[Rfam]
RNA sequence: GGAGUCGGCUCGGCAGUCGCUCUGGUGUUAACGAAUGGUCUCUCUUGAGUGAUCGUUGGUGCAUCGGGGAGGAAAGUCCGGGCUCCAUAGGGUAGAGCGCCAGGUAACGCCUGGGGGGUGUGAGCCCACGGAAAGUGCAACAGAGAGUAGACCGCCUAAGCGCUCGCAAGAGUGACGGUAAGGGUGAAAGGGUGCGGUAAGAGCGCACCGCGCAACUGGCAACAGGCUGCGGCAUGGUAAACCCCGCUCGGAGCAAGACCAAAUAGGCCCUCUAUGAUGCGACCCGUAUCGAGGGCGGGUAGGUUGCUUGAGGCUGAUGGUGACAUCAGUCCCAGAUGAAUGAUUGUCCACGACAGAACCCGGCUUACAGGCUGACUCCGACG
Numbered sequence: 001g002g003a004g005u006c007g008g009c010u011c012g013g014c015a016g017u018c019g020c021u022c023u024g025g026u027g028u029u030a031a032c033g034a035a036u037g038g039u040c041u042c043u044c045u046u047g048a049g050u051g052a053u054c055g056u057u058g059g060u061g062c063a064u065c066g067g068g069g070a071g072g073a074a075a076g077u078c079c080g081g082g083c084u085c086c087a088u089a090g091g092g093u094a095g096a097g098c099g100c101c102a103g104g105u106a107a108c109g110c111c112u113g114g115g116g117g118g119u120g121u122g123a124g125c126c127c128a129c130g131g132a133a134a135g136u137g138c139a140a141c142a143g144a145g146a147g148u149a150g151a152c153c154g155c156c157u158a159a160g161c162g163c164u165c166g167c168a169a170g171a172g173u174g175a176c177g178g179u180a181a182g183g184g185u186g187a188a189a190g191g192g193u194g195c196g197g198u199a200a201g202a203g204c205g206c207a208c209c210g211c212g213c214a215a216c217u218g219g220c221a222a223c224a225g226g227c228u229g230c231g232g233c234a235u236g237g238u239a240a241a242c243c244c245c246g247c248u249c250g251g252a253g254c255a256a257g258a259c260c261a262a263a264u265a266g267g268c269c270c271u272c273u274a275u276g277a278u279g280c281g282a283c284c285c286g287u288a289u290c291g292a293g294g295g296c297g298g299g300u301a302g303g304u305u306g307c308u309u310g311a312g313g314c315u316g317a318u319g320g321u322g323a324c325a326u327c328a329g330u331c332c333c334a335g336a337u338g339a340a341u342g343a344u345u346g347u348c349c350a351c352g353a354c355a356g357a358a359c360c361c362g363g364c365u366u367a368c369a370g371g372c373u374g375a376c377u378c379c380g381a382c383g
Stems, first nucleotide, its partner, number of pairs: 001379010012348007020069009074366003078363005083253004090285004095249005100114005115129001116127004130244002135242002137238002152183002154179003161174005191209006210233001211231004216225003257305004267296006276290005312331008
This 383-nucleotide RNA from Cellvibrio sp. KY-GH-1 belongs to the Rfam family "Bacterial RNase P class A". It scores 323 bits against the family's covariance model. By type it is a ribozyme. The organism belongs to Cellvibrio, within Bacteria.